RNA sequence: AAAACCUAAAACAAUGAAAGCCCUUCCUCUCUUCCAUCCUUGCGGCUCCGAUGACCGCGCCAGUGUGAAUCGGGGAUCCAAAAAUGUU
Numbered sequence: 001a002a003a004a005c006c007u008a009a010a011a012c013a014a015u016g017a018a019a020g021c022c023c024u025u026c027c028u029c030u031c032u033u034c035c036a037u038c039c040u041u042g043c044g045g046c047u048c049c050g051a052u053g054a055c056c057g058c059g060c061c062a063g064u065g066u067g068a069a070u071c072g073g074g075g076a077u078c079c080a081a082a083a084a085u086g087u088u
Stems, first nucleotide, its partner, number of pairs: 035067002039063002041059005047053001
This 88-nucleotide RNA sequence from Brevibacillus brevis belongs to the Rfam family "BsrC". The source organism's lineage runs through Bacteria, Bacillota, Caryophanales, Brevibacillus and Brevibacillus brevis. Rfam describes the family as follows. The 301 nucleotide sequence from Kouji Nakamura has been trimmed to a highly conserved ~85 nucleotide long core to form this family. By type it is a small RNA. The family's consensus secondary structure was predicted with CMfinder.